[Rfam]
RNA sequence: UAACAAAGGCGGCUUGUUGCUUUGUUUUUUCUUACGACUAAACAAAGAGGAAAGUCUGGACACCAUAGAGCAGCAUAGCGGCUAACCGCCGUCCACAGCGAUGUGAGGACUAGUGCAACAGAAAGCAAGUACAGUACGGCUGUAGUGAAAUCAGGUAAACUCUAUGCGGUGCAAUGCUAAGUAUAUCGGCAACUAAGGGUCGCUCGUCCAAUGCCGAGGGGUAAGCAGCUAAAGUUUAAUAGCAAUAUUAAGCGUAGAUAAAUAACAAGCGUUCUGAACUUGUUUAGAAUACAGAAUCCGGCUUAUAGCCUUUGUUAUUUU
Dot-bracket structure: ((((((((((((((((((.((((((((............))))))))....[[[.[[[[[((((...[[[[.((((((((((.....)))))(((((....)))).)((...((((......................................))..)))))))))))))...((((.......(((((......((((.]]]]))))...)))))......))))......((((((((....))))))))..........)))))))..........................]]]]]]]].).))))))))))....
RNA: Bacterial RNase P class A